Overview:
Rfam assigns this 88-nucleotide sequence from [Enterobacter] lignolyticus to the family "OmrA-B family". The family's RNA type in Rfam is small RNA.
Nucleotides: 088
Base pairs, nucleotide, nucleotide: 016061017060018059019058020057030046031045032044033043034042035041062081063080064079065078066077067076068075069074
Number, partner (000 for none) and nucleotide at each position: 001000c002000c003000c004000a005000g006000a007000g008000g009000u010000a011000u012000u013000g014000a015000u016061u017060g018059g019058u020057g021000a022000g023000a024000u025000u026000c027000u028000u029000a030046a031045g032044u033043g034042c035041g036000g037000u038000u039000u040000u041035c042034g043033u044032a045031c046030u047000u048000c049000u050000u051000c052000u053000c054000u055000u056000a057020c058019a059018c060017c061016g062081a063080c064079c065078u066077g067076c068075g069074c070000a071000g072000a073000u074069g075068c076067g077066c078065a079064g080063g081062u082000u083000u084000u085000u086000u087000u088000u
Overview
A search with the family's covariance model found it, with a score of 90 bits. The base pairs follow the family's consensus structure, which was predicted with WAR.